RNA: Bacterial RNase P class A
Nucleotides: 319
Stems, first nucleotide, its partner, number of pairs: 004312007011304001012275007020035005040302003044299005049160004056210004061156005066080005081095001082093004096151002101149002103145002118133001120131003164232004175222005202214004239258008
Number, partner (000 for none) and nucleotide at each position: 001000u002000u003000c004312g005311c006310a007309g008308a009307c010306u011304g012275c013274c014273u015272u016271a017270u018269c019000g020035u021034u022033c023032c024031u025000u026000u027000u028000a029000u030000u031024a032023g033022g034021a035020g036000a037000g038000g039000a040302a041301a042300g043000u044299c045298c046297g047296g048295a049160c050159a051158c052157c053000a054000c055000a056210g057209a058208g059207u060000a061156g062155c063154a064153u065152a066080a067079u068078g069077g070076g071000u072000a073000a074000u075000g076070c077069c078068c079067a080066u081095c082093c083092a084091u085090c086000g087000a088000a089000a090085g091084g092083u093082g094000a095081g096151g097150a098000c099000a100000a101149g102148u103145g104144c105000a106000a107000c108000a109000g110000a111000a112000a113000g114000u115000a116000u117000g118133u119000a120131c121130a122129g123000g124000u125000u126000a127000a128000g129122c130121u131120g132000u133118a134000g135000u136000g137000a138000a139000a140000c141000c142000a143000g144104g145103u146000a147000a148102a149101c150097u151096c152065u153064a154063u155062g156061c157052g158051g159050u160049g161000a162000a163000a164232u165231g166230c167229c168000a169000a170000g171000u172000a173000u174000a175222u176221c177220a178219a179218c180000a181000a182000c183000u184000c185000u186000a187000a188000c189000u190000u191000c192000g193000g194000u195000u196000a197000g198000a199000u200000a201000a202214g203213a204212g205211c206000u207059a208058c209057u210056c211205g212204u213203u214202c215000g216000a217000u218179g219178u220177u221176g222175a223000a224000g225000g226000g227000u228000a229167g230166g231165c232164a233000g234000c235000u236000u237000g238000a239258a240257c241256u242255a243254a244253g245252c246251a247000g248000u249000a250000a251246u252245g253244u254243u255242u256241a257240g258239u259000c260000u261000a262000g263000a264000u265000a266000a267000a268000u269018g270017a271016u272015a273014a274013g275012g276000c277000u278000c279000c280000u281000u282000u283000u284000u285000g286000g287000a288000g289000a290000c291000a292000g293000a294000a295048u296047c297046c298045g299044g300042c301041u302040u303000a304011u305000a306010g307009g308008u309007c310006u311005g312004c313000u314000u315000u316000u317000u318000u319000u